RNA sequence: CGCAAGGCCGGACCGAGGAGGGUUCGAACCGUUAGAGGUUCGACGAGCGCGCAGCGCGAGAACGGUGGAGCGAAGCGACACCGGCCCGAAGGGCGAGACGCGAAGCGUCGAGUAAUCCUCCUCCCUCCACCA
Numbered sequence: 001c002g003c004a005a006g007g008c009c010g011g012a013c014c015g016a017g018g019a020g021g022g023u024u025c026g027a028a029c030c031g032u033u034a035g036a037g038g039u040u041c042g043a044c045g046a047g048c049g050c051g052c053a054g055c056g057c058g059a060g061a062a063c064g065g066u067g068g069a070g071c072g073a074a075g076c077g078a079c080a081c082c083g084g085c086c087c088g089a090a091g092g093g094c095g096a097g098a099c100g101c102g103a104a105g106c107g108u109c110g111a112g113u114a115a116u117c118c119u120c121c122u123c124c125c126u127c128c129a130c131c132a
Stems, first nucleotide, its partner, number of pairs: 015123007023115001030095002033093001039090004047055001063083005

Shown here is a 132-nucleotide RNA sequence from Salinisphaera orenii, a member of the family "RtT RNA". The base pairs follow the family's consensus structure, which is taken from published work. Gene Ontology term of the family: cellular response to amino acid starvation. This family represents a bacterial cis-regulatory element known as RtT RNA. The exact function of RtT is unknown although it is thought that it may be involved in changing the cellular response in relation to amino acid starvation. Rfam 15.1 lists 651 matches to the family in 204 species. A search with the family's covariance model found it, with a score of 75 bits.